Rfam assigns this 83-nucleotide RNA sequence from Pseudocercospora fijiensis to the family "tRNA". Rfam classes the family as a transfer RNA. It scores 54 bits against the family's covariance model.

[Rfam]
RNA sequence: GGUCGGCUAGCUCAAUGGUAGAGUGCUUGACUACGAAUUGUUGUGUUAUCAAGAGGUUGCAGGUUCGAGCCCUGCGUCGAUCA
Numbered sequence: 001g002g003u004c005g006g007c008u009a010g011c012u013c014a015a016u017g018g019u020a021g022a023g024u025g026c027u028u029g030a031c032u033a034c035g036a037a038u039u040g041u042u043g044u045g046u047u048a049u050c051a052a053g054a055g056g057u058u059g060c061a062g063g064u065u066c067g068a069g070c071c072c073u074g075c076g077u078c079g080a081u082c083a
Base pairs, nucleotide, nucleotide: 001082002081003080004079005078006077007076010024011023012022013021026053027052028051029050030049059075060074061073062072063071
Dot-bracket structure: (((((((..((((.......)))).(((((..................))))).....(((((.......)))))))))))).